Shown here is a 100-nucleotide RNA from Herbinix luporum, a member of the family "Purine riboswitch aptamer". The base pairs follow the family's consensus structure, which is taken from published work. Riboswitches are metabolite binding domains within certain messenger RNAs that serve as precision sensors for their corresponding targets. Allosteric rearrangement of mRNA structure is mediated by ligand binding, and this results in modulation of gene expression. The family is grouped with related families in Rfam's "Purine riboswitches". The source organism's lineage runs through Bacteria, Bacillota, Clostridia, Lachnospirales and Herbinix.
RNA sequence: AUUACUUGAAAAUAAAAUAUCCAUAUAUUUCUGAUAAUAUGGUUCAGAAGUUUCUACGAGAAACCGUAAAUUUCUUGCUAUGGGUAAUCCAAUAAUAAAU
Numbered sequence: 001a002u003u004a005c006u007u008g009a010a011a012a013u014a015a016a017a018u019a020u021c022c023a024u025a026u027a028u029u030u031c032u033g034a035u036a037a038u039a040u041g042g043u044u045c046a047g048a049a050g051u052u053u054c055u056a057c058g059a060g061a062a063a064c065c066g067u068a069a070a071u072u073u074c075u076u077g078c079u080a081u082g083g084g085u086a087a088u089c090c091a092a093u094a095a096u097a098a099a100u
Base pairs, nucleotide, nucleotide: 018086019085020084021083022082023081024080025079029049030048031047032046033045034044058076059075060074061073062072063071